[Rfam]
RNA: TPP riboswitch aptamer (THI element)
Nucleotides: 107
Stems, first nucleotide, its partner, number of pairs: 007094004011058004017030005037052005063088004069082004
Number, partner (000 for none) and nucleotide at each position: 001000g002000g003000c004000g005000g006000a007094c008093g009092a010091c011058a012057g013056g014055g015000g016000a017030g018029c019028g020027c021026c022000g023000u024000a025000g026021g027020g028019c029018g030017c031000u032000g033000a034000g035000a036000g037052u038051g039050c040049g041048g042000c043000g044000a045000g046000c047000g048041c049040c050039g051038c052037a053000g054000a055014c056013c057012c058011u059000c060000g061000a062000a063088c064087c065086u066085g067000a068000c069082c070081c071080g072079g073000u074000u075000a076000g077000c078000a079072c080071c081070g082069g083000c084000g085066u086065a087064g088063g089000g090000a091010g092009u093008c094007g095000g096000g097000c098000u099000c100000g101000a102000c103000g104000c105000c106000g107000u